[Rfam]
RNA sequence: AUGUUCAAGUAGAAGCCAUCCGCUUCUCACCUCAUGGCUAGAGUCGAUGAGGUAUCUUCGGGUCCUGAGCUUAAUUUGCUUGCUCACGAUUUGUUAGAAGACGGGUGGAUCUCUGCCCGUCUUUUUUGUUUUUG
Number, nucleotide and partner (000 for none) at each position: 001a000002u000003g000004u000005u000006c000007a000008a000009g000010u000011a027012g026013a025014a024015g023016c022017c000018a000019u000020c000021c000022g016023c015024u014025u013026c012027u011028c000029a063030c062031c061032u000033c000034a000035u000036g000037g000038c000039u000040a000041g000042a057043g056044u052045c051046g000047a000048u000049g000050a000051g045052g044053u000054a000055u000056c043057u042058u000059c000060g000061g031062g030063u029064c000065c000066u000067g000068a000069g000070c000071u000072u000073a000074a000075u000076u000077u000078g000079c000080u000081u000082g000083c000084u000085c000086a000087c000088g000089a000090u000091u000092u000093g000094u000095u000096a000097g000098a000099a000100g121101a120102c119103g118104g117105g116106u115107g114108g113109a000110u000111c000112u000113c108114u107115g106116c105117c104118c103119g102120u101121c100122u000123u000124u000125u000126u000127u000128g000129u000130u000131u000132u000133u000134g000
The record is a 134-nucleotide RNA from Desulfitobacterium dichloroeliminans, which matches "Ribosomal protein L20 leader" in Rfam. Rfam links the family to the GO term regulation of gene expression. Rfam describes the family as follows. This family is a putative r-protein leader autoregulatory structure found in B. subtilis and other low-GC Gram-positive bacteria. It is located in the 5' untranslated regions of mRNAs encoding initiation factor 3 followed by ribosomal proteins L35 and L20 (infC-rpmI-rplT). By type it is a cis-regulatory leader.